[Rfam]
Annotation: Rfam assigns this 52-nucleotide RNA from Roseovarius sp. THAF27 to the family "ffh sRNA". NCBI's taxonomy places the organism under Bacteria, Pseudomonadota, Rhodobacterales, Roseobacteraceae, Roseovarius.

RNA sequence: GCAGCCCGGGAUCGCCCCCCACCAGCGAGUGUCGCCCGUGGGGGCGCUUCUC
Numbered sequence: 001g002c003a004g005c006c007c008g009g010g011a012u013c014g015c016c017c018c019c020c021a022c023c024a025g026c027g028a029g030u031g032u033c034g035c036c037c038g039u040g041g042g043g044g045c046g047c048u049u050c051u052c
Stems, first nucleotide, its partner, number of pairs: 016044007025035004